Rfam assigns this 88-nucleotide RNA sequence from Terribacillus saccharophilus to the family "Glycine riboswitch aptamer".
Pairs were carried over by alignment from the consensus structure.
It scores 74 bits against the family's covariance model.
The source organism's lineage runs through Bacteria, Bacillati, Bacillota, Bacilli and Terribacillus.
About the family: This family represents the bacterial glycine riboswitch.

RNA sequence: GUGAAUGUUGGAGGAGAGACCGCUAUAUGCGGCGCCGAAGGAGCAAAUAUUGAGUGAAUCUCUCAGGCAAAAGAACUCCAACAGGACG
Number, nucleotide and partner (000 for none) at each position: 001g000002u000003g000004a000005a000006u083007g082008u081009u080010g079011g078012a077013g076014g000015a000016g000017a000018g000019a000020c032021c031022g030023c029024u000025a000026u000027a000028u000029g023030c022031g021032g020033c000034g068035c067036c066037g064038a063039a000040g000041g062042a061043g060044c000045a000046a000047a055048u054049a000050u000051u000052g000053a000054g048055u047056g000057a000058a000059u000060c043061u042062c041063u038064c037065a000066g036067g035068c034069a000070a000071a000072a000073g000074a000075a000076c013077u012078c011079c010080a009081a008082c007083a006084g000085g000086a000087c000088g000